[Rfam]
Overview:
The family of this 182-nucleotide sequence from Periweissella fabalis is "Lysine riboswitch aptamer". It scores 106 bits against the family's covariance model. The source organism's lineage runs through Bacteria, Bacillati, Bacillota, Lactobacillaceae and Periweissella.

RNA sequence: AUAAUUCAAAGAGGUUGCGACCAACAAAAGUAAAACAAGUGAGUACUACUAUACGAUGAACUUGUUUGAAAGGGGCGGUCGCCGAAGGAAAGCUAUUGAGUAGGAUAGUGGACUUGGGCCGAUAUUUAAGAGGUAUCGGACUGUCGUAGCAAGAAUGUCGGCUACGGGGCGCUUUCGACAAC
Numbered sequence: 001a002u003a004a005u006u007c008a009a010a011g012a013g014g015u016u017g018c019g020a021c022c023a024a025c026a027a028a029a030g031u032a033a034a035a036c037a038a039g040u041g042a043g044u045a046c047u048a049c050u051a052u053a054c055g056a057u058g059a060a061c062u063u064g065u066u067u068g069a070a071a072g073g074g075g076c077g078g079u080c081g082c083c084g085a086a087g088g089a090a091a092g093c094u095a096u097u098g099a100g101u102a103g104g105a106u107a108g109u110g111g112a113c114u115u116g117g118g119c120c121g122a123u124a125u126u127u128a129a130g131a132g133g134u135a136u137c138g139g140a141c142u143g144u145c146g147u148a149g150c151a152a153g154a155a156u157g158u159c160g161g162c163u164a165c166g167g168g169g170c171g172c173u174u175u176c177g178a179c180a181a182c
Stems, first nucleotide, its partner, number of pairs: 006177001008175004017082006025074001033067008086115003092109006116142002119139008144167007